Shown here is a 46-nucleotide RNA sequence from Acetobacteroides hydrogenigenes, a member of the family "Acido-Lenti-1 RNA". It is annotated as a small RNA.
RNA sequence: CCUAGCCCUUACAGGCCAGGCUUUAUGAUUACGCCCUUUCAGGGCU
Numbered sequence: 001c002c003u004a005g006c007c008c009u010u011a012c013a014g015g016c017c018a019g020g021c022u023u024u025a026u027g028a029u030u031a032c033g034c035c036c037u038u039u040c041a042g043g044g045c046u
Stems, first nucleotide, its partner, number of pairs: 001020003005016003033045005
Record summary
Pairs were carried over by alignment from the consensus structure, which is taken from published work.